This 64-nucleotide RNA from Canis lupus belongs to the Rfam family "mir-30 microRNA precursor family". Rfam links the family to the GO terms gene silencing by miRNA and RISC complex. Taxonomically the source falls in Canis lupus (Eukaryota, Opisthokonta, Deuterostomia, Caniformia). Rfam describes the family as follows. This family consists of the mammalian microRNA (miRNA) precursor mir-30a. Animal miRNAs are transcribed as ~70nt precursors and subsequently processed by the Dicer enzyme to give a ~22nt product. In this case the mature sequence comes from both the 3' (miR-30) and 5' (mir-97-6) arms of the precursor. The extents of the hairpin precursors are not generally known and are estimated based on hairpin prediction. The products are thought to have regulatory roles through complementarity to mRNA. The involvement of Dicer in miRNA processing suggests a relationship with the phenomenon of RNA interference. miRNAs are numbered based on the sequence of the mature RNA. It is one of the family's seed sequences.
RNA sequence: UGUAAACAUCCUUGACUGGAAGCUGUAAGGUGCUCAGAGGGGCUUUCAGUCGGAUGUUUACAGC
Number, nucleotide and partner (000 for none) at each position: 001u062002g061003u060004a059005a058006a057007c056008a055009u054010c053011c052012u000013u000014g000015a050016c049017u048018g047019g046020a045021a044022g043023c042024u041025g000026u000027a000028a000029g000030g000031u000032g000033c000034u000035c000036a000037g000038a000039g000040g000041g024042g023043c022044u021045u020046u019047c018048a017049g016050u015051c000052g011053g010054a009055u008056g007057u006058u005059u004060a003061c002062a001063g000064c000